Source information:
This 71-nucleotide RNA from Leptospirillum rubarum belongs to the Rfam family "Fluoride riboswitch aptamer (crcB RNA motif)". The organism belongs to Leptospirillum sp. Group II, within Bacteria. Rfam's curators put it in the seed alignment. On this family, see Ren et al., Nature 2012: "Fluoride ion encapsulation by Mg2+ ions and phosphates in a fluoride riboswitch".
RNA sequence: AGGAAGACAGGCGAUGGGGUUCGCCAAAACCGCCCCGGAGAACAGCGGGAGCUGAUGACCCCUACUCCAUU
Numbered sequence: 001a002g003g004a005a006g007a008c009a010g011g012c013g014a015u016g017g018g019g020u021u022c023g024c025c026a027a028a029a030c031c032g033c034c035c036c037g038g039a040g041a042a043c044a045g046c047g048g049g050a051g052c053u054g055a056u057g058a059c060c061c062c063u064a065c066u067c068c069a070u071u
Stems, first nucleotide, its partner, number of pairs: 010025004016062006032052002035049001